RNA: Bacterial RNase P class A
RNA sequence: GCAGGCGGCCGGACGAUCGCUGCCCUCCGCACGCAAGUGUCUAUCUUGGGUGUCGGAGGGGGGAGGAAAGUCCGAACUCCGCAGGGCAGUGUGCCGGAUAACGUCCGGGACGGAUGCUUCAAGGCAUCUGGACGGCCAGUGCAACAGAGAAUAUACCGCCUCGUCUUUCGCAAGAAAGACAGGGUAAGGGUGAAAAGGUGCGGUAAGAGCGCACCGGUUUUUGCGUAAGCAAAAACGCUUGGUAAACCCCACACGGAGCAAGACCAAAUAGGCAGGGAGUCCGGUUGCCCUCUUCAGAGCAGCCGGCGCGCAUCGGCCCGGUGCGCCCAGGUGAAGAGUGUUGUGCCGGAACCUGCGGGUAGGUUGCUAAAGCGCCGCAGUAAUGCGUCGCGUAGAGGAAUGAUCGUCUAGAACAAAAUUCGGCUUACGGGCCGUCUGCAGAA
Numbered sequence: 001g002c003a004g005g006c007g008g009c010c011g012g013a014c015g016a017u018c019g020c021u022g023c024c025c026u027c028c029g030c031a032c033g034c035a036a037g038u039g040u041c042u043a044u045c046u047u048g049g050g051u052g053u054c055g056g057a058g059g060g061g062g063g064a065g066g067a068a069a070g071u072c073c074g075a076a077c078u079c080c081g082c083a084g085g086g087c088a089g090u091g092u093g094c095c096g097g098a099u100a101a102c103g104u105c106c107g108g109g110a111c112g113g114a115u116g117c118u119u120c121a122a123g124g125c126a127u128c129u130g131g132a133c134g135g136c137c138a139g140u141g142c143a144a145c146a147g148a149g150a151a152u153a154u155a156c157c158g159c160c161u162c163g164u165c166u167u168u169c170g171c172a173a174g175a176a177a178g179a180c181a182g183g184g185u186a187a188g189g190g191u192g193a194a195a196a197g198g199u200g201c202g203g204u205a206a207g208a209g210c211g212c213a214c215c216g217g218u219u220u221u222u223g224c225g226u227a228a229g230c231a232a233a234a235a236c237g238c239u240u241g242g243u244a245a246a247c248c249c250c251a252c253a254c255g256g257a258g259c260a261a262g263a264c265c266a267a268a269u270a271g272g273c274a275g276g277g278a279g280u281c282c283g284g285u286u287g288c289c290c291u292c293u294u295c296a297g298a299g300c301a302g303c304c305g306g307c308g309c310g311c312a313u314c315g316g317c318c319c320g321g322u323g324c325g326c327c328c329a330g331g332u333g334a335a336g337a338g339u340g341u342u343g344u345g346c347c348g349g350a351a352c353c354u355g356c357g358g359g360u361a362g363g364u365u366g367c368u369a370a371a372g373c374g375c376c377g378c379a380g381u382a383a384u385g386c387g388u389c390g391c392g393u394a395g396a397g398g399a400a401u402g403a404u405c406g407u408c409u410a411g412a413a414c415a416a417a418a419u420u421c422g423g424c425u426u427a428c429g430g431g432c433c434g435u436c437u438g439c440a441g442a443a
Base pairs, nucleotide, nucleotide: 001439002438003437004436005435006434007433008432009431010430011428012408013407014406015405016404017403018402020063021062023060024059025058026057027056028055068426069425070424072423073422074421075420076419077258078257079256080255086288087287089254090253091252092251093250094108095107096106097105098104109133111130112129113128114127115126116125117124118123134249135248139247140246141243142242156189157188158185159184160183161182163180164179165178166177167176168175169174197215198214199213200212201211202210216238217236218235219234220233221232222231223230224229262365263364264363265362272356273355274354275353276352281349282348283347284346285345372391373390374389376387377386378385379384